Overview
Shown here is a 72-nucleotide RNA from Paraglomus brasilianum, a member of the family "tRNA". A search with the family's covariance model found it, with a score of 63 bits.
RNA sequence: GCCCGCUUAGCUCAAUAGGAAGAGCAUAAUACUUCUAAUAUUAGAGUUCGGGUUCGACCCCCGAAGCGGGCU
Numbered sequence: 001g002c003c004c005g006c007u008u009a010g011c012u013c014a015a016u017a018g019g020a021a022g023a024g025c026a027u028a029a030u031a032c033u034u035c036u037a038a039u040a041u042u043a044g045a046g047u048u049c050g051g052g053u054u055c056g057a058c059c060c061c062c063g064a065a066g067c068g069g070g071c072u
Stems, first nucleotide, its partner, number of pairs: 001071007010025004027043005048064005